The record is a 157-nucleotide sequence from Marinospirillum celere, which matches "Manganese Mn2+ riboswitch aptamer (yybP-ykoY)" in Rfam.
RNA sequence: CUCCACUUCUCAGGGGAGUAGUCGCACUGCCUGCUAGGGCAGUGGCCUGUAUCAACAUUCUUGACCCUCAAGGUCAUGGUACAGGCGGCAAGGGUAAACACCCGGCUUGACGAGACCUGUGAUGCGAAUUUUCUGCUUGAAUCAUCAGGCGGCCUUU
Numbered sequence: 001c002u003c004c005a006c007u008u009c010u011c012a013g014g015g016g017a018g019u020a021g022u023c024g025c026a027c028u029g030c031c032u033g034c035u036a037g038g039g040c041a042g043u044g045g046c047c048u049g050u051a052u053c054a055a056c057a058u059u060c061u062u063g064a065c066c067c068u069c070a071a072g073g074u075c076a077u078g079g080u081a082c083a084g085g086c087g088g089c090a091a092g093g094g095u096a097a098a099c100a101c102c103c104g105g106c107u108u109g110a111c112g113a114g115a116c117c118u119g120u121g122a123u124g125c126g127a128a129u130u131u132u133c134u135g136c137u138u139g140a141a142u143c144a145u146c147a148g149g150c151g152g153c154c155u156u157u
Stems, first nucleotide, its partner, number of pairs: 026043003045086010062076005090156004
Lineage of the source: Bacteria > Pseudomonadati > Gammaproteobacteria > Oceanospirillales > Marinospirillum.